[Rfam]
Annotation:
This 75-nucleotide sequence from Paenibacillus ferrarius belongs to the Rfam family "RT-6 RNA". Taxonomically the source falls in Paenibacillus (Bacteria, Bacillati, Bacilli, Caryophanales). Rfam classes the family as a small RNA.

RNA sequence: AGCCUUAUGUUUUAGACAUAAGGGUUGGAGAUUGUUGUCAACUGGCUGACUGGUAUUCUUAGAUUGAAUAUCGUC
Numbered sequence: 001a002g003c004c005u006u007a008u009g010u011u012u013u014a015g016a017c018a019u020a021a022g023g024g025u026u027g028g029a030g031a032u033u034g035u036u037g038u039c040a041a042c043u044g045g046c047u048g049a050c051u052g053g054u055a056u057u058c059u060u061a062g063a064u065u066g067a068a069u070a071u072c073g074u075c
Stems, first nucleotide, its partner, number of pairs: 003023008054070005